[Rfam]
The family of this 84-nucleotide RNA sequence from Streptomyces sp. H-KF8 is "nrdJ RNA". Taxonomically the source falls in Streptomyces (Bacteria, Bacillati, Actinomycetota, Kitasatosporales). A search with the family's covariance model found it, with a score of 77 bits.

RNA sequence: ACCUGUCGCGGGCGACGUGAGUGUGCGCCCGCGCCAUCAGAACAAACACCGUGCCACGGGAACAUCGGGGCACUUCAGGGCGUU
Numbered sequence: 001a002c003c004u005g006u007c008g009c010g011g012g013c014g015a016c017g018u019g020a021g022u023g024u025g026c027g028c029c030c031g032c033g034c035c036a037u038c039a040g041a042a043c044a045a046a047c048a049c050c051g052u053g054c055c056a057c058g059g060g061a062a063c064a065u066c067g068g069g070g071c072a073c074u075u076c077a078g079g080g081c082g083u084u
Stems, first nucleotide, its partner, number of pairs: 004036002007033008016023002051073005057067002